[Rfam]
Overview: Exoribonuclease-resistant RNA (xrRNA) plant-infecting virus (class 3): a 49-nucleotide sequence from Tobacco bushy top disease-associated RNA. From the family's description: Exoribonuclease-resistant RNA (xrRNA) plant-infecting virus (class 3) is a ncRNA that was reported in Plant viruses. Its family is annotated with viral RNA genome replication in the Gene Ontology. The organism belongs to Riboviria, within Viruses.
RNA sequence: AGGCAGCCCCUUGCCAGGUUGCGACUAGGGGGCCAUCAGUCCUGGCACA
Numbered sequence: 001a002g003g004c005a006g007c008c009c010c011u012u013g014c015c016a017g018g019u020u021g022c023g024a025c026u027a028g029g030g031g032g033c034c035a036u037c038a039g040u041c042c043u044g045g046c047a048c049a
Stems, first nucleotide, its partner, number of pairs: 002033001007031002010029001011027001014045005